[Rfam]
RNA: Glycine riboswitch aptamer
Organism: Microbacterium sp. No. 7
RNA sequence: ACACGGCUGCUGGGGAGAGUUCCGCGAACGCGGACGCCGAAGGGGCAAGUACCCGCAAAUCUCUCAGGCAUCAGGGACCCGCAGCCGUCA
Numbered sequence: 001a002c003a004c005g006g007c008u009g010c011u012g013g014g015g016a017g018a019g020u021u022c023c024g025c026g027a028a029c030g031c032g033g034a035c036g037c038c039g040a041a042g043g044g045g046c047a048a049g050u051a052c053c054c055g056c057a058a059a060u061c062u063c064u065c066a067g068g069c070a071u072c073a074g075g076g077a078c079c080c081g082c083a084g085c086c087g088u089c090a
Stems, first nucleotide, its partner, number of pairs: 006085005012080003021034004036069003039065002043063003049056002